[Rfam]
RNA sequence: AGAGGAGACAUCCAAAGGGAUCGCAUUGAUCCUAAGCUCUUCUUCUCUCCCCGUAUUUUAAUCUUUUGGAUCAUGCUAUCCCUUUGGAUUCCUCCUU
Numbered sequence: 001a002g003a004g005g006a007g008a009c010a011u012c013c014a015a016a017g018g019g020a021u022c023g024c025a026u027u028g029a030u031c032c033u034a035a036g037c038u039c040u041u042c043u044u045c046u047c048u049c050c051c052c053g054u055a056u057u058u059u060a061a062u063c064u065u066u067u068g069g070a071u072c073a074u075g076c077u078a079u080c081c082c083u084u085u086g087g088a089u090u091c092c093u094c095c096u097u
Stems, first nucleotide, its partner, number of pairs: 002097005010089012023076004028072005036065001
Dot-bracket structure: .(((((...((((((((((((.((((.(((((...(............................)..))))))))).))))))))))))...)))))
The record is a 97-nucleotide sequence from Manihot esculenta, which matches "mir-393 microRNA precursor family" in Rfam. The literature on the family includes a 2012 paper in J Plant Physiol by Kruszka et al., "Role of microRNAs and other sRNAs of plants in their changing environments". The base pairs follow the family's consensus structure. Rfam links the family to the GO terms RISC complex and miRNA-mediated post-transcriptional gene silencing.